Small nucleolar RNA SNORA79: a 148-nucleotide sequence from Sphenodon punctatus. It is annotated as an H/ACA-box small nucleolar RNA. A reference for the family is Schattner et al. (2006), "A computational screen for mammalian pseudouridylation guide H/ACA RNAs", RNA. About the family: ACA65 (SNORA79) is a member of the H/ACA class of snoRNAs that guide the sites of modification of uridines to pseudouridines. This snoRNA was identified by computational screening and its expression in mouse experimentally verified by Northern blot and primer extension analysis. It scores 111 bits against the family's covariance model. Gene Ontology terms of the family: RNA processing and nucleolus.
[Rfam]
RNA sequence: CGAUGACCGUUCCUCUCACUGCCACAAGCCUUGGGCAGUGGGAUUUUGUGUCAUCGUAGAUAAAGCCUGGCCUUUCUUCACUCAGGGUGCCCUUGGAUGGGUUUGGCUGUCCGUUAGCACCUUCUGAACUUUGUGGGGUCAGACAUUC
Dot-bracket structure: (((((((......(((((.((((..........)))).)))))......)))))))............((((((.......(((((((((....(((((........)))))....))))..))))).......))))))........